This 68-nucleotide RNA sequence from Cellulomonas carbonis belongs to the Rfam family "Actino-pnp RNA".
RNA sequence: CCCGGUCCUCGGUAGUGGCUCGCGGAGCCCGGUUCGCCGGCCUCCGCGGACCUCGAUCGAAGACCGUC
Numbered sequence: 001c002c003c004g005g006u007c008c009u010c011g012g013u014a015g016u017g018g019c020u021c022g023c024g025g026a027g028c029c030c031g032g033u034u035c036g037c038c039g040g041c042c043u044c045c046g047c048g049g050a051c052c053u054c055g056a057u058c059g060a061a062g063a064c065c066g067u068c
Base pairs, nucleotide, nucleotide: 003066004065005064006063007062009060010059011058012057013056017052018051020049021048022047023046024045025044026043027042028040029039

Description: A search with the family's covariance model found it, with a score of 59 bits.